[Rfam]
RNA sequence: CCUCCUCGAUCUGCUGCGGGCAGACGAAGUGGAUGUGGGCAUCGAUCCCGCCGGCGGUGACGAUCUUGCCCUCGGCGGCGAUCACCUCCGUGCCGGGGCCGAUGAUGAUGUCCACCCCGGGCUGGGUAUCGGGGUUGCCGGCCUUGCCGAUGGCCUGGAUACGCCCGUCCUUGAUACCGAUGUCCGCCUUGACCACACCCCAGUGGUCCAGGAUCAGGGCGUUGGUGAUAACCGUGUCCACCACGUCGCGGCCGGUGCGCUGGCUCUGGCCCAUGCCAUCGCGGAUG
Numbered sequence: 001c002c003u004c005c006u007c008g009a010u011c012u013g014c015u016g017c018g019g020g021c022a023g024a025c026g027a028a029g030u031g032g033a034u035g036u037g038g039g040c041a042u043c044g045a046u047c048c049c050g051c052c053g054g055c056g057g058u059g060a061c062g063a064u065c066u067u068g069c070c071c072u073c074g075g076c077g078g079c080g081a082u083c084a085c086c087u088c089c090g091u092g093c094c095g096g097g098g099c100c101g102a103u104g105a106u107g108a109u110g111u112c113c114a115c116c117c118c119g120g121g122c123u124g125g126g127u128a129u130c131g132g133g134g135u136u137g138c139c140g141g142c143c144u145u146g147c148c149g150a151u152g153g154c155c156u157g158g159a160u161a162c163g164c165c166c167g168u169c170c171u172u173g174a175u176a177c178c179g180a181u182g183u184c185c186g187c188c189u190u191g192a193c194c195a196c197a198c199c200c201c202a203g204u205g206g207u208c209c210a211g212g213a214u215c216a217g218g219g220c221g222u223u224g225g226u227g228a229u230a231a232c233c234g235u236g237u238c239c240a241c242c243a244c245g246u247c248g249c250g251g252c253c254g255g256u257g258c259g260c261u262g263g264c265u266c267u268g269g270c271c272c273a274u275g276c277c278a279u280c281g282c283g284g285a286u287g
Stems, first nucleotide, its partner, number of pairs: 001287001003285001005283001007281003011158003016154002018076001022072002030053003034050002037048003057069003077148002081144001085140001090138002092135003096130002099125002102123001106119001107117001163270001165269003171263003175259001177257001185221007223254003231246001234244003